About this RNA
Shown here is a 130-nucleotide RNA from Salmo salar, a member of the family "Small nucleolar RNA SNORA3/SNORA45 family". Its Rfam clan is "SNORA3 clan". The literature on the family includes a 2001 paper in EMBO J by Huttenhofer et al., "RNomics: an experimental approach that identifies 201 candidates for novel, small, non-messenger RNAs in mouse". It is annotated as an H/ACA-box small nucleolar RNA. It scores 54 bits against the family's covariance model. The members of this family belong to the H/ACA class of snoRNAs which are thought to guide the sites of modification of uridines to pseudouridines. This family includes mouse snoMBI-28 and human homologues ACA3 (SNORA3) and ACA3-2 (SNORA45). Both ACA3 and ACA3-2 share the same host gene. MBI-28, ACA3 and ACA3-2 are all predicted to guide the pseudouridylation of residues in 28S rRNA.
[Rfam]
RNA sequence: UCAGAGACUCAGAGUCUCAUCUUGACAAACACCAUUGUCUUGGUGUGCUAGAGUUCUCUAAGAGUGAAGACUGGUCCUAUUCACCGACUGGCCCCUCAUAGGCUUGUCACCCACAUGGGCAGUUACAAGU
Numbered sequence: 001u002c003a004g005a006g007a008c009u010c011a012g013a014g015u016c017u018c019a020u021c022u023u024g025a026c027a028a029a030c031a032c033c034a035u036u037g038u039c040u041u042g043g044u045g046u047g048c049u050a051g052a053g054u055u056c057u058c059u060a061a062g063a064g065u066g067a068a069g070a071c072u073g074g075u076c077c078u079a080u081u082c083a084c085c086g087a088c089u090g091g092c093c094c095c096u097c098a099u100a101g102g103c104u105u106g107u108c109a110c111c112c113a114c115a116u117g118g119g120c121a122g123u124u125a126c127a128a129g130u
Base pairs, nucleotide, nucleotide: 003059004058005057006056007054008053009052013049014048016047018045019044020043021042024039025038026037027036071122072121073120075118076117086108087107088106090104091103092102093101
Notes:
Gene Ontology terms of the family: nucleolus and RNA processing.